[Rfam]
Nucleotides: 144
Stems, first nucleotide, its partner, number of pairs: 003068006023049001025047001027045004082137004094124002098120001099118004
Number, partner (000 for none) and nucleotide at each position: 001000g002000u003068g004067c005066a006065u007064g008063c009000u010000g011000g012000a013000u014000a015000u016000u017000g018000g019000u020000g021000u022000u023049g024000g025047g026000u027045u028044c029043c030042u031000u032000u033000a034000c035000u036000u037000u038000u039000c040000a041000u042030g043029g044028g045027g046000c047025u048000g049023c050000a051000a052000u053000a054000c055000a056000a057000u058000c059000c060000a061000g062000a063008g064007c065006a066005u067004g068003c069000u070000a071000g072000a073000g074000a075000a076000a077000u078000a079000u080000g081000a082137g083136g084135a085134g086000u087000u088000u089000u090000c091000a092000g093000g094124g095123u096000c097000a098120c099118c100117a101116g102115u103000u104000a105000u106000a107000a108000a109000g110000c111000a112000c113000a114000u115102a116101c117100u118099g119000u120098g121000u122000g123095g124094u125000a126000g127000u128000a129000u130000a131000a132000a133000a134085c135084u136083u137082c138000u139000a140000c141000a142000g143000u144000u